Rfam assigns this 387-nucleotide sequence from Lentibacillus sp. CBA3610 to the family "Bacterial RNase P class B". By type it is a ribozyme.
[Rfam]
RNA sequence: GUACUUGCGUAAUCGCUGUAUAUGUCACAUAUACAGAGGAAAGUCCAUGCUCACACAGGCUGAGAUGCUUGUAGUGUUCGUGCUUGACGAAAUCAUAAGUCAAGGUAGCCUUGAUGGCUAACGGCAGUGGAAAAUCCUAACUCGUAAGACAAGGAUGAGUACACUUGAAAGUGCCACAGUGACGCAGUCGGCCUGGAAACAGUCCGAAUGGAACGCGGUAAACCCCACGAGUGAGCAACCCAAAUAUUGGUAGGGGCACCUUUGAAUAGGGAAGUGAACCGAAAAAGGGACAAGUAUUCUCACAAAUACUUGUAGAUAGAUGGUUACGACCGAUGUACAAGGCUGACCACCGUCGAAGUACAACGGAACAGAACAUGGCUUAUCAAG
Number, nucleotide and partner (000 for none) at each position: 001g000002u000003a000004c387005u386006u385007g383008c328009g327010u326011a325012a324013u323014c322015g000016c036017u035018g034019u033020a032021u031022a000023u000024g000025u000026c000027a000028c000029a000030u000031a021032u020033a019034c018035a017036g016037a000038g000039g000040a000041a381042a380043g379044u000045c378046c377047a376048u375049g374050c235051u234052c233053a232054c231055a072056c071057a070058g069059g068060c067061u000062g000063a000064g000065a000066u000067g060068c059069u058070u057071g056072u055073a000074g000075u000076g000077u000078u230079c229080g228081u227082g226083c104084u103085u102086g101087a100088c099089g000090a000091a000092a000093u000094c000095a000096u000097a000098a000099g088100u087101c086102a085103a084104g083105g122106u120107a119108g118109c117110c116111u000112u000113g000114a000115u000116g110117g109118c108119u107120a106121a000122c105123g225124g224125c000126a165127g164128u163129g162130g000131a000132a000133a000134a156135u155136c154137c153138u000139a000140a000141c000142u149143c148144g000145u000146a000147a000148g143149a142150c000151a000152a000153g137154g136155a135156u134157g000158a000159g000160u000161a000162c129163a128164c127165u126166u000167g000168a000169a000170a000171g223172u222173g219174c218175c217176a000177c000178a000179g000180u000181g000182a000183c000184g000185c000186a000187g000188u207189c206190g205191g204192c000193c202194u201195g200196g000197a000198a000199a000200c195201a194202g193203u000204c191205c190206g189207a188208a000209u000210g000211g000212a000213a000214c000215g000216c000217g175218g174219u173220a000221a000222a172223c171224c124225c123226c082227a081228c080229g079230a078231g054232u053233g052234a051235g050236c000237a000238a000239c255240c254241c253242a000243a000244a000245u000246a000247u000248u000249g000250g000251u000252a000253g241254g240255g239256g000257c000258a000259c289260c288261u287262u286263u285264g000265a000266a000267u000268a000269g000270g000271g000272a000273a000274g000275u000276g000277a000278a000279c000280c000281g000282a000283a000284a000285a263286a262287g261288g260289g259290a313291c312292a311293a310294g309295u308296a307297u306298u305299c000300u000301c000302a000303c000304a000305a298306a297307u296308a295309c294310u293311u292312g291313u290314a000315g000316a000317u000318a000319g000320a000321u000322g014323g013324u012325u011326a010327c009328g008329a000330c366331c365332g364333a000334u362335g361336u360337a359338c358339a000340a000341g000342g000343c000344u000345g000346a000347c000348c000349a000350c000351c000352g000353u000354c000355g000356a000357a000358g338359u337360a336361c335362a334363a000364c332365g331366g330367a000368a000369c000370a000371g000372a000373a000374c049375a048376u047377g046378g045379c043380u042381u041382a000383u007384c000385a006386a005387g004
Rfam describes the family as follows. Ribonuclease P (RNase P) is a ubiquitous endoribonuclease, found in archaea, bacteria and eukarya as well as chloroplasts and mitochondria. Its best characterised activity is the generation of mature 5'-ends of tRNAs by cleaving the 5'-leader elements of precursor-tRNAs. Cellular RNase Ps are ribonucleoproteins. The organism belongs to Lentibacillus, within Bacteria.